[Rfam]
RNA sequence: CAAUAAUGCGGAGUCGAUGCAACGCGGCCCAUACUUGGGCGCCUGGACCGUGUGAAGACAGUGGCGCAACCGACCGCUGCCG
Numbered sequence: 001c002a003a004u005a006a007u008g009c010g011g012a013g014u015c016g017a018u019g020c021a022a023c024g025c026g027g028c029c030c031a032u033a034c035u036u037g038g039g040c041g042c043c044u045g046g047a048c049c050g051u052g053u054g055a056a057g058a059c060a061g062u063g064g065c066g067c068a069a070c071c072g073a074c075c076g077c078u079g080c081c082g
Stems, first nucleotide, its partner, number of pairs: 008077004013059003022053006029046001037071002039067005
The record is an 82-nucleotide RNA sequence from Desulfotomaculum copahuensis, which matches "c-di-GMP-II-GAG riboswitch aptamer" in Rfam. Gene Ontology terms of the family: cyclic-di-GMP binding and regulation of gene expression. The match comes from Rfam's covariance-model search (48 bits). Its Rfam clan is "c-di-GMP_II riboswitch clan".